[Rfam]
RNA: L31-Actinobacteria ribosomal protein leader
RNA sequence: UCGGCCCCGGUUCACGCAGCGCGCAAUUCGGCUCCUGCGACCCGGCGCC
Numbered sequence: 001u002c003g004g005c006c007c008c009g010g011u012u013c014a015c016g017c018a019g020c021g022c023g024c025a026a027u028u029c030g031g032c033u034c035c036u037g038c039g040a041c042c043c044g045g046c047g048c049c
Base pairs, nucleotide, nucleotide: 003049004048005047007045008044009043010042015039016038017037018036019035021032022031